Shown here is a 74-nucleotide sequence from Marinobacterium aestuarii, a member of the family "tRNA". Lineage of the source: Bacteria > Gammaproteobacteria > Oceanospirillales > Oceanospirillaceae > Marinobacterium. A search with the family's covariance model found it, with a score of 78 bits. From the family's description: Transfer RNA (tRNA) molecules are approximately 80 nucleotides in length. Their secondary structure includes four short double-helical elements and three loops (D, anti-codon, and T loops). Rfam classes the family as a transfer RNA.
Nucleotides: 074
Stems, first nucleotide, its partner, number of pairs: 001073007010026004028044005050066005
Number, partner (000 for none) and nucleotide at each position: 001073g002072g003071g004070c005069c006068c007067a008000u009000a010026g011025c012024u013023c014000a015000g016000u017000u018000g019000g020000u021000u022000a023013g024012a025011g026010c027000a028044a029043u030042c031041g032040a033000c034000u035000c036000a037000u038000a039000a040032u041031c042030g043029a044028u045000u046000g047000g048000u049000c050066g051065c052064a053063g054062g055000u056000u057000c058000a059000a060000g061000u062054c063053c064052u065051g066050c067007u068006g069005g070004g071003c072002c073001c074000a